[Rfam]
Guanidine-II riboswitch aptamer (mini-ykkC): a 45-nucleotide RNA from Paraburkholderia ultramafica. Gene Ontology term of the family: regulation of gene expression. For this family Rfam cites "The Structure of the Guanidine-II Riboswitch" (Huang et al., Cell Chem Biol, 2017). The base pairs follow the family's consensus structure, which is taken from published work.
RNA sequence: GCGUAAGGACGACCUGACGCUUGUACGACAAACGGGGACGGCCCC
Numbered sequence: 001g002c003g004u005a006a007g008g009a010c011g012a013c014c015u016g017a018c019g020c021u022u023g024u025a026c027g028a029c030a031a032a033c034g035g036g037g038a039c040g041g042c043c044c045c
Stems, first nucleotide, its partner, number of pairs: 001020004006015003034045004